[Rfam]
RNA: c-di-GMP-I riboswitch aptamer
Organism: Cryobacterium fucosi
RNA sequence: CUACGAAAAUGGCAAACCCGGCGCAAGGCGCGGACGCAAAGCCACGGGACCUACUGGGUUCGCCGGGUUACCGAA
Numbered sequence: 001c002u003a004c005g006a007a008a009a010u011g012g013c014a015a016a017c018c019c020g021g022c023g024c025a026a027g028g029c030g031c032g033g034a035c036g037c038a039a040a041g042c043c044a045c046g047g048g049a050c051c052u053a054c055u056g057g058g059u060u061c062g063c064c065g066g067g068u069u070a071c072c073g074a075a
Base pairs, nucleotide, nucleotide: 012037013036017032019030020029022027040069041068042067043066045065046064047063048060049059050058051057052056